RNA sequence: UCUGACUUGGAGCUUUGCUGGUUUGCUCUCAGCUUUUGUUUCACUGCUGUGCAAAUCCAUGCAAAGCUCAGAGUUGGC
Number, nucleotide and partner (000 for none) at each position: 001u000002c000003u076004g075005a074006c073007u072008u071009g000010g069011a068012g067013c066014u065015u064016u063017g062018c061019u000020g058021g057022u055023u054024u053025g052026c051027u000028c049029u000030c000031a048032g047033c046034u000035u000036u000037u000038g000039u000040u000041u000042c000043a000044c000045u000046g033047c032048u031049g028050u000051g026052c025053a024054a023055a022056u000057c021058c020059a000060u000061g018062c017063a016064a015065a014066g013067c012068u011069c010070a000071g008072a007073g006074u005075u004076g003077g000078c000
Rfam assigns this 78-nucleotide RNA from Neogobius melanostomus to the family "mir-19 microRNA precursor family". Clan: mir-19 clan.